[Rfam]
RNA sequence: CCGUCGAUCCGGGCCCCUCUGACGGUCCGGCGGCCUCUAUGGCCGCCCCGUGAUGUCGGAUCACGAAC
Numbered sequence: 001c002c003g004u005c006g007a008u009c010c011g012g013g014c015c016c017c018u019c020u021g022a023c024g025g026u027c028c029g030g031c032g033g034c035c036u037c038u039a040u041g042g043c044c045g046c047c048c049c050g051u052g053a054u055g056u057c058g059g060a061u062c063a064c065g066a067a068c
Stems, first nucleotide, its partner, number of pairs: 006062007022051004028045003
Annotation: The record is a 68-nucleotide RNA from Acetobacteraceae bacterium H6797, which matches "terC RNA" in Rfam. The match comes from Rfam's covariance-model search (49 bits). The family's consensus secondary structure is taken from published work.